[Rfam]
RNA: epsC RNA
Organism: Paenibacillus albicereus
RNA sequence: AGGUAAUGCCUACUGAACCUUUAUCACUGUAGGCACUCGGCCAUACUGUGGGUUCCUAGUGGACCUUAGACGCGAGUCGUCGAUGGUAUGGCGUGAGGCGGGGUUGAAUGCCCC
Numbered sequence: 001a002g003g004u005a006a007u008g009c010c011u012a013c014u015g016a017a018c019c020u021u022u023a024u025c026a027c028u029g030u031a032g033g034c035a036c037u038c039g040g041c042c043a044u045a046c047u048g049u050g051g052g053u054u055c056c057u058a059g060u061g062g063a064c065c066u067u068a069g070a071c072g073c074g075a076g077u078c079g080u081c082g083a084u085g086g087u088a089u090g091g092c093g094u095g096a097g098g099c100g101g102g103g104u105u106g107a108a109u110g111c112c113c114c
Base pairs, nucleotide, nucleotide: 001020002019003018004017007035008034009033010032011031012030013029036097037096038095039094040092041091042090043089044088045087046086047085050066051065052064053063054062055061069081070080071079072078100114101113102112103111104110